azaaromatic riboswitch aptamer (yjdF RNA): a 99-nucleotide sequence from Christensenella hongkongensis. The organism belongs to Christensenella, within Bacteria. The family's consensus secondary structure is taken from published work.
RNA sequence: AAGCGCAAAGAUAAAAACACAGUCCCGGUUGGUAGUCCGGGCGCGGCCCGUGCCGUCAGUAACCUGCCUCCUUGGUUGUCCCUUCUUUGUUCUGUUACC
Numbered sequence: 001a002a003g004c005g006c007a008a009a010g011a012u013a014a015a016a017a018c019a020c021a022g023u024c025c026c027g028g029u030u031g032g033u034a035g036u037c038c039g040g041g042c043g044c045g046g047c048c049c050g051u052g053c054c055g056u057c058a059g060u061a062a063c064c065u066g067c068c069u070c071c072u073u074g075g076u077u078g079u080c081c082c083u084u085c086u087u088u089g090u091u092c093u094g095u096u097a098c099c
Stems, first nucleotide, its partner, number of pairs: 005090007022042002025040004043056005066076003